[Rfam]
RNA sequence: GUGGAUAUGAUGAUCCUUUCCCCACAUGAUCGACUAAGAUUAUAAGCAAAUUUUUUACAUUUUCCCUUUUGGGAAAAUCAAGCUAGAGAUUCUGAUCCAC
Numbered sequence: 001g002u003g004g005a006u007a008u009g010a011u012g013a014u015c016c017u018u019u020c021c022c023c024a025c026a027u028g029a030u031c032g033a034c035u036a037a038g039a040u041u042a043u044a045a046g047c048a049a050a051u052u053u054u055u056u057a058c059a060u061u062u063u064c065c066c067u068u069u070u071g072g073g074a075a076a077a078u079c080a081a082g083c084u085a086g087a088g089a090u091u092c093u094g095a096u097c098c099a100c
Base pairs, nucleotide, nucleotide: 001100002099003098004097005096
Shown here is a 100-nucleotide RNA sequence from Dendrobium catenatum, a member of the family "Small nucleolar RNA Z103". A reference for the family is Chen et al. (2003), "The high diversity of snoRNAs in plants: identification and comparative study of 120 snoRNA genes from Oryza sativa", Nucleic Acids Res. It scores 77 bits against the family's covariance model.